[Rfam]
Nucleotides: 085
Stems, first nucleotide, its partner, number of pairs: 002082005009074002013071017032054005037048001038046002
Number, partner (000 for none) and nucleotide at each position: 001000c002082a003081u004080u005079c006078a007000c008000a009074g010073u011000g012000c013071g014070u015069u016068u017067g018066a019065u020064a021063a022062g023061u024060u025059g026058a027057c028056a029055u030000g031000g032054g033053a034052c035051a036050g037048g038046a039045a040000u041000u042000c043000u044000u045039u046038u047000u048037c049000a050036c051035u052034g053033u054032u055029g056028u057027g058026u059025c060024a061023a062022u063021u064020u065019a066018u067017c068016a069015a070014a071013c072000c073010a074009u075000a076000u077000g078006u079005g080004g081003a082002u083000a084000u085000c
Rfam assigns this 85-nucleotide sequence from Ophiophagus hannah to the family "mir-599 microRNA precursor family". The sequence is in the family's curated seed alignment. Rfam links the family to the GO terms miRNA-mediated post-transcriptional gene silencing and RISC complex.